[Rfam]
RNA: Drosophila small cajal body-specific RNA PsiU2-55
RNA sequence: AUAACAUGGCAGUACAGUUGACAGUUGAAGCUAUUCGCUGUUAAUCCUUCAUGCCUUGUUAGAGCAACAAAACGUCCCAUUUUACUACUAAUUUAGCGAUUUUGGGAUGUGCAAUGAGAAUGUUCGUCACGAUUGUGCAGCCUAAAUCGUGACUGCUGAUAGUUGCAUACAUUA
Numbered sequence: 001a002u003a004a005c006a007u008g009g010c011a012g013u014a015c016a017g018u019u020g021a022c023a024g025u026u027g028a029a030g031c032u033a034u035u036c037g038c039u040g041u042u043a044a045u046c047c048u049u050c051a052u053g054c055c056u057u058g059u060u061a062g063a064g065c066a067a068c069a070a071a072a073c074g075u076c077c078c079a080u081u082u083u084a085c086u087a088c089u090a091a092u093u094u095a096g097c098g099a100u101u102u103u104g105g106g107a108u109g110u111g112c113a114a115u116g117a118g119a120a121u122g123u124u125c126g127u128c129a130c131g132a133u134u135g136u137g138c139a140g141c142c143u144a145a146a147u148c149g150u151g152a153c154u155g156c157u158g159a160u161a162g163u164u165g166c167a168u169a170c171a172u173u174a
Base pairs, nucleotide, nucleotide: 004059005058006057008055009054010053012050014048017045018044019043020042021041022040023039027036028035073109074108075107076106077105078104084100086098088096110167111166112165113164114163115162118160122156123155126153127152129150130149131148132147133146134145